[Rfam]
This 128-nucleotide RNA sequence from Otolemur garnettii belongs to the Rfam family "Small nucleolar RNA SNORA3/SNORA45 family". The match comes from Rfam's covariance-model search (105 bits). Its Rfam clan is "SNORA3 clan". The source organism's lineage runs through Eukaryota, Deuterostomia, Craniata, Mammalia and Otolemur. On this family, see Gu et al., Nucleic Acids Res 2005: "A novel experimental approach for systematic identification of box H/ACA snoRNAs from eukaryotes". Its family is annotated with RNA processing and nucleolus in the Gene Ontology. The members of this family belong to the H/ACA class of snoRNAs which are thought to guide the sites of modification of uridines to pseudouridines. This family includes mouse snoMBI-28 and human homologues ACA3 (SNORA3) and ACA3-2 (SNORA45). Both ACA3 and ACA3-2 share the same host gene.
RNA sequence: AUCGAGGCUAGAGUCACACUUGAGUAUUGGUUAUUGCCUUAGUGUGCUACAGUCCUCGAAGAGUCACUGCUGACCUUAUUCACUGGCUGUGGCGCUGAUGGCAGUCAGUCACCAGGUUAGUGACAUGG
Number, nucleotide and partner (000 for none) at each position: 001a000002u059003c058004g057005a056006g055007g053008c052009u051010a000011g000012a048013g047014u000015c046016a045017c044018a043019c042020u041021u000022g000023a000024g037025u036026a035027u000028u000029g000030g000031u000032u000033a000034u000035u026036g025037c024038c000039u000040u000041a020042g019043u018044g017045u016046g015047c013048u012049a000050c000051a009052g008053u007054c000055c006056u005057c004058g003059a002060a000061g000062a000063g000064u000065c000066a000067c000068u000069g000070c120071u119072g118073a117074c116075c115076u114077u000078a000079u000080u000081c000082a109083c108084u107085g106086g105087c000088u103089g102090u000091g000092g000093c101094g000095c000096u000097g000098a000099u000100g000101g093102c089103a088104g000105u086106c085107a084108g083109u082110c000111a000112c000113c000114a076115g075116g074117u073118u072119a071120g070121u000122g000123a000124c000125a000126u000127g000128g000
About this RNA
It is annotated as an H/ACA-box small nucleolar RNA.